[Rfam]
RNA sequence: UCAUCAAGGCUAAAGGGAGAAGAGAGAGAGUACAGCCUUACCAUGUACACACUCAGAUCUCAACAGUCUCUUAUAUAUGUUGUUAUCUGCGAGUUUGAUGAAGGCUGUACCCUCUCUCUUCUUCUCUUAGCUUCUUGAUGC
Numbered sequence: 001u002c003a004u005c006a007a008g009g010c011u012a013a014a015g016g017g018a019g020a021a022g023a024g025a026g027a028g029a030g031u032a033c034a035g036c037c038u039u040a041c042c043a044u045g046u047a048c049a050c051a052c053u054c055a056g057a058u059c060u061c062a063a064c065a066g067u068c069u070c071u072u073a074u075a076u077a078u079g080u081u082g083u084u085a086u087c088u089g090c091g092a093g094u095u096u097g098a099u100g101a102a103g104g105c106u107g108u109a110c111c112c113u114c115u116c117u118c119u120u121c122u123u124c125u126c127u128u129a130g131c132u133u134c135u136u137g138a139u140g141c
Base pairs, nucleotide, nucleotide: 005137006136009131012128013127015125016124017123018122019121020120021119022118023117024116025115026114027113028112030110031109032108033107034106035105036104037103038102

Shown here is a 141-nucleotide sequence from Miscanthus lutarioriparius, a member of the family "MIR529 microRNA precursor family". The family has 3 seed sequences and 55 matches in Rfam 15.1. Gene Ontology terms of the family: RISC complex and miRNA-mediated post-transcriptional gene silencing.